[Rfam]
RNA: mir-3473 microRNA precursor family
Organism: Mus musculus
RNA sequence: CUGCUGAGCCAUCUCUCCAGCCCCCAUAAUAAGUCUUUUAAAUGUAAAAUUCAUUAUAGGAGUUGGGGAGAUGGCUCAGUA
Dot-bracket structure: .((((((((((((((((((((.(....................................).))))))))))))))))))))
Numbered sequence: 001c002u003g004c005u006g007a008g009c010c011a012u013c014u015c016u017c018c019a020g021c022c023c024c025c026a027u028a029a030u031a032a033g034u035c036u037u038u039u040a041a042a043u044g045u046a047a048a049a050u051u052c053a054u055u056a057u058a059g060g061a062g063u064u065g066g067g068g069a070g071a072u073g074g075c076u077c078a079g080u081a
Stems, first nucleotide, its partner, number of pairs: 002081020023060001